This 48-nucleotide RNA from Frankenia pulverulenta belongs to the Rfam family "Plastid-ccsA-ndhD-2 3UTR RNA". Plastid ccsA-ndhD-2 is a non-coding RNA (ncRNA) recognised in plastids. It was found in the three prime untranslated region (3UTR) of ccsA and ndhD genes, its 3UTR location suggests a role in transcript maturation. Pairs were carried over by alignment from the consensus structure, which was predicted with LocARNA. A reference for the family is Richter et al. (2023), "Retrograde signaling in plants: A critical review focusing on the GUN pathway and beyond", Plant Commun. Lineage of the source: Eukaryota > Embryophyta > Magnoliopsida > Pentapetalae > Frankenia. Rfam's curators put it in the seed alignment.
RNA sequence: UGUUGAGAACCAUUUAAAUCAAGUAGUGUAGUGAUUCAAAUGGUUCUC
Numbered sequence: 001u002g003u004u005g006a007g008a009a010c011c012a013u014u015u016a017a018a019u020c021a022a023g024u025a026g027u028g029u030a031g032u033g034a035u036u037c038a039a040a041u042g043g044u045u046c047u048c
Stems, first nucleotide, its partner, number of pairs: 005048011017036005